Description: Rfam assigns this 104-nucleotide RNA sequence from Turnera subulata to the family "Plastid-rps12 3UTR RNA". For this family Rfam cites "Retrograde signaling in plants: A critical review focusing on the GUN pathway and beyond" (Richter et al., Plant Commun, 2023). Rfam's curators write: Plastid rpl20 is a non-coding RNA (ncRNA) recognised in plastids. It was found in the three prime untranslated region (3UTR) of rps12 gene, its 3UTR location sugest a role in transcript maduration. The organism belongs to Turnera, within Eukaryota. The family's consensus secondary structure was predicted with LocARNA.
RNA sequence: GGUUUCGAUUGGUGCAAAUUCAAUCACCUCUAUUUGAAAAUGAAGAUAGGAAAGAAUUCCCCAUGGGUAGCAAAUGCUUAUCCGUUAAGCGGGGGAAAUUUGAU
Dot-bracket structure: ........((((.......))))...................................((((((.(((((.......))))).)).....))))..........
Numbered sequence: 001g002g003u004u005u006c007g008a009u010u011g012g013u014g015c016a017a018a019u020u021c022a023a024u025c026a027c028c029u030c031u032a033u034u035u036g037a038a039a040a041u042g043a044a045g046a047u048a049g050g051a052a053a054g055a056a057u058u059c060c061c062c063a064u065g066g067g068u069a070g071c072a073a074a075u076g077c078u079u080a081u082c083c084g085u086u087a088a089g090c091g092g093g094g095g096a097a098a099u100u101u102g103a104u
Stems, first nucleotide, its partner, number of pairs: 009023004059094004063085002066082005